[Rfam]
RNA: mir-2807 microRNA precursor family
Nucleotides: 085
Stems, first nucleotide, its partner, number of pairs: 008079009018069001020067001023065007035053002040048001
Number, partner (000 for none) and nucleotide at each position: 001000u002000u003000a004000a005000c006000u007000c008079a009078a010077a011076u012075u013074u014073g015072u016071a017000u018069g019000c020067a021000u022000c023065u024064u025063g026062g027061a028060a029059c030000a031000g032000u033000g034000c035053c036052c037000c038000u039000a040048g041000c042000g043000g044000c045000a046000a047000a048040c049000g050000c051000a052036g053035g054000u055000a056000a057000a058000c059029g060028u061027u062026c063025c064024a065023a066000c067020u068000c069018c070000a071016u072015a073014c074013a075012a076011a077010u078009u079008u080000a081000a082000g083000c084000u085000a